[Rfam]
RNA: MIR2617 microRNA precursor family
Organism: Medicago truncatula
Nucleotides: 085
Base pairs, nucleotide, nucleotide: 002085004083005082007080008079009078010077011076012075013074014073016072017071018070019069020068021067
Number, partner (000 for none) and nucleotide at each position: 001000a002085u003000g004083u005082a006000g007080u008079g009078u010077a011076g012075c013074a014073u015000g016072c017071c018070c019069g020068u021067u022000g023000g024000u025000g026000c027000u028000u029000a030000a031000c032000u033000c034000u035000g036000a037000u038000g039000a040000u041000u042000a043000u044000g045000u046000u047000g048000u049000a050000u051000u052000u053000a054000a055000u056000u057000a058000u059000a060000u061000u062000u063000g064000g065000g066000u067021a068020g069019c070018g071017g072016g073014g074013u075012g076011u077010u078009a079008c080007a081000g082005u083004g084000a085002a